RNA sequence: GGGUGGCGCCGCAUCCCGCGCGCGCCAGGUUCAUGCGCAGGUCGGGCCGCCGCG
Numbered sequence: 001g002g003g004u005g006g007c008g009c010c011g012c013a014u015c016c017c018g019c020g021c022g023c024g025c026c027a028g029g030u031u032c033a034u035g036c037g038c039a040g041g042u043c044g045g046g047c048c049g050c051c052g053c054g
Stems, first nucleotide, its partner, number of pairs: 005026005011021002036054003040051003
The family of this 54-nucleotide RNA from Ramlibacter albus is "nhaA-I RNA". Lineage of the source: Bacteria > Betaproteobacteria > Burkholderiales > Comamonadaceae > Ramlibacter. It scores 47 bits against the family's covariance model. About the family: Acidobacteria, Alphaproteobacteria, Betaproteobacteria and Gammaproteobacteria, Verrucomicrobia, cand. division NC10.